[Rfam]
RNA sequence: UGAAAACGUUUUACAAUAAUAACGUUCUUUAAUUUCUUUAAAACGGAAAAGAAUGGCCGAGCAAUCGGAAGGAGAUUAUUCUUUUUUGUUUUAAUGAAAAAUAUAAACAAGGAGGAAGAACAAGA
Number, nucleotide and partner (000 for none) at each position: 001u000002g000003a000004a000005a000006a025007c024008g023009u022010u021011u000012u019013a000014c000015a000016a000017u000018a000019a012020u000021a010022a009023c008024g007025u006026u119027c118028u117029u116030u000031a000032a000033u099034u098035u097036c096037u000038u094039u093040a000041a091042a090043a089044c088045g087046g086047a085048a084049a083050a082051g081052a080053a079054u078055g000056g000057c068058c067059g066060a065061g000062c000063a000064a000065u060066c059067g058068g057069a000070a000071g000072g000073a000074g000075a000076u000077u000078a054079u053080u052081c051082u050083u049084u048085u047086u046087u045088g044089u043090u042091u041092u000093a039094a038095u000096g036097a035098a034099a033100a000101a000102u000103a000104u000105a000106a000107a000108c000109a000110a000111g000112g000113a000114g000115g000116a029117a028118g027119a026120a000121c000122a000123a000124g000125a000

Rfam assigns this 125-nucleotide sequence from Streptococcus henryi to the family "Streptococcus sRNA SSRC34". The literature on the family includes a 2013 paper in PLoS One by Tesorero et al., "Novel Regulatory Small RNAs in Streptococcus pyogenes". The match comes from Rfam's covariance-model search (125 bits).